[Rfam]
RNA sequence: UACACAUGUGAUGAAUAAGAAGGGACUUAAUACUGAACUUUUUUGAUGUGAAUAAUUUAAAAUUCUGAUGUGU
Numbered sequence: 001u002a003c004a005c006a007u008g009u010g011a012u013g014a015a016u017a018a019g020a021a022g023g024g025a026c027u028u029a030a031u032a033c034u035g036a037a038c039u040u041u042u043u044u045g046a047u048g049u050g051a052a053u054a055a056u057u058u059a060a061a062a063u064u065c066u067g068a069u070g071u072g073u
Base pairs, nucleotide, nucleotide: 002073003072004071005070006069
A member of the RNA family "Small nucleolar RNA SNORD82" from Polypterus senegalus, 73 nucleotides long. For this family Rfam cites "Purified box C/D snoRNPs are able to reproduce site-specific 2'-O-methylation of target RNA in vitro" (Galardi et al., Mol Cell Biol, 2002). Rfam describes the family as follows. snoRNA U82 or Z25 is found in both humans and mice. The match comes from Rfam's covariance-model search (58 bits). NCBI's taxonomy places the organism under Eukaryota, Chordata, Gnathostomata, Cladistia, Polypterus.